SAM/SAH riboswitch aptamer: a 48-nucleotide sequence from Pseudoprimorskyibacter insulae. The literature on the family includes a 2019 paper in Nucleic Acids Res by Weickhmann et al., "The structure of the SAM/SAH-binding riboswitch". Gene Ontology terms of the family: regulation of gene expression and S-adenosylmethionine metabolic process. Pairs were carried over by alignment from the consensus structure, which is taken from published work.
RNA sequence: AUCCCGUCACAACGGCUUCCUGGCGUGGCGGAGAAAUGUAAUGGAGCA
Number, nucleotide and partner (000 for none) at each position: 001a000002u000003c000004c031005c030006g029007u028008c027009a026010c025011a000012a000013c022014g021015g047016c046017u045018u000019c044020c043021u014022g013023g000024c000025g010026u009027g008028g007029c006030g005031g004032a000033g000034a000035a000036a000037u000038g000039u000040a000041a000042u000043g020044g019045a017046g016047c015048a000